[Rfam]
RNA sequence: GAUACACCCUUAUGGAGCAGGACUUGCUUCAGUGGAAUUUUGGUGCUCACUGUGUCUGCCCCCUGAGUGUGUCGCU
Number, nucleotide and partner (000 for none) at each position: 001g075002a000003u000004a072005c071006a070007c069008c000009c067010u066011u065012a064013u000014g062015g061016a000017g059018c058019a057020g000021g056022a055023c054024u000025u000026g000027c000028u000029u000030c052031a051032g050033u049034g048035g047036a000037a044038u043039u000040u000041u000042g000043g038044u037045g000046c000047u035048c034049a033050c032051u031052g030053u000054g023055u022056c021057u019058g018059c017060c000061c015062c014063c000064u012065g011066a010067g009068u000069g007070u006071g005072u004073c000074g000075c001076u000
Shown here is a 76-nucleotide sequence from Myotis brandtii, a member of the family "mir-9229 microRNA precursor family". A search with the family's covariance model found it, with a score of 75 bits.